[Rfam]
RNA sequence: CGGUGUGAGGAGGCCGUAUGUCGUGCAGAGCGAGGGCGGAAUAUGCUGCGUAGCGAGCGACCUCCUUUCACAGC
Dot-bracket structure: ..(((.(.(((((.(((.(((.(((((...................))))).))).))).))))).).)))...

Rfam assigns this 74-nucleotide RNA from Ornithorhynchus anatinus to the family "mir-1421 microRNA precursor family". The family has 53 seed sequences and 110 matches in Rfam 15.1. The source organism's lineage runs through Eukaryota, Eumetazoa, Sarcopterygii, Tetrapoda and Ornithorhynchus.